[Rfam]
RNA sequence: AAUAAAUAUUAGCAAAAUUAGCGAAAGUUGAUGACGCAAAGUUAUGGGUCUAAGAUAUUUAAUAUAUUAUGAUUGCCAAACUGCACAG
Numbered sequence: 001a002a003u004a005a006a007u008a009u010u011a012g013c014a015a016a017a018u019u020a021g022c023g024a025a026a027g028u029u030g031a032u033g034a035c036g037c038a039a040a041g042u043u044a045u046g047g048g049u050c051u052a053a054g055a056u057a058u059u060u061a062a063u064a065u066a067u068u069a070u071g072a073u074u075g076c077c078a079a080a081c082u083g084c085a086c087a088g
Stems, first nucleotide, its partner, number of pairs: 012037002017032006040082004045078003048073003055067004
Shown here is an 88-nucleotide sequence from Halanaerobium praevalens, a member of the family "c-di-GMP-I riboswitch aptamer". Taxonomically the source falls in Halanaerobium praevalens (Bacteria, Bacillati, Bacillota, Clostridia). The base pairs follow the family's consensus structure, which is taken from published work. It scores 71 bits against the family's covariance model.